The family of this 83-nucleotide sequence from Plasmodium falciparum is "small nucleolar RNA snoR22". The literature on the family includes a 2007 paper in RNA by Chakrabarti et al., "Structural RNAs of known and unknown function identified in malaria parasites by comparative genomics and RNA analysis". It is one of the family's seed sequences. The family has 3 seed sequences and 34 matches in Rfam 15.1. It is annotated as a C/D-box small nucleolar RNA.

RNA sequence: UUUUUAUGAUGAUACAAUUCCAAAAAUGCAAGUAGGGACAUGAGAAUAUUAUAAAUAUGUUCGACUUCUAUUAUCUGAAAAAA
Number, nucleotide and partner (000 for none) at each position: 001u083002u082003u081004u080005u000006a000007u000008g000009a000010u000011g000012a000013u000014a000015c000016a000017a000018u000019u000020c000021c000022a000023a000024a000025a000026a000027u000028g000029c000030a000031a000032g000033u000034a000035g000036g000037g000038a000039c000040a000041u000042g000043a000044g000045a000046a000047u000048a000049u000050u000051a000052u000053a000054a000055a000056u000057a000058u000059g000060u000061u000062c000063g000064a000065c000066u000067u000068c000069u000070a000071u000072u000073a000074u000075c000076u000077g000078a000079a000080a004081a003082a002083a001